[Rfam]
This 52-nucleotide sequence from Solanum commersonii belongs to the Rfam family "MIR1886 microRNA precursor family". Pairs were carried over by alignment from the consensus structure, which was predicted with RNAalifold.
RNA sequence: UGAGAUGGAAUCGACGUUUGGACAUGCGAUUUUACGUUGAUUUCACCUCAUA
Numbered sequence: 001u002g003a004g005a006u007g008g009a010a011u012c013g014a015c016g017u018u019u020g021g022a023c024a025u026g027c028g029a030u031u032u033u034a035c036g037u038u039g040a041u042u043u044c045a046c047c048u049c050a051u052a
Base pairs, nucleotide, nucleotide: 001050002049003048004047006045007044008043009042010041011040012039013038014037015036016035017034018029019028020027